Ribosomal protein L10 leader: a 134-nucleotide RNA from Halalkalibacter hemicellulosilyticus. This family is a putative r-protein leader autoregulatory structure found in B. subtilis and other low-GC Gram-positive bacteria. It is located in the 5' untranslated regions of mRNAs encoding ribosomal proteins L10 and L12 (rplJ-rplL). A Rho-independent transcription terminator structure that is probably involved in regulation is included at the 3' end.
[Rfam]
RNA sequence: UAAAAUUUAAAAGUCAUACCGUAGACAGUAGGAGUGCUUUGCACUUAAUCGCCUACCGAGGUAAGCAAUAGAUGCAGAUAAUAAACUGUGUUUGUGUGCCCUCAUGUCUACAUGAGGGCACUUUUUAUGCUUGA
Dot-bracket structure: ...........................(((((.(((.....))).......))))).........................................(((((((((....)))))))))...............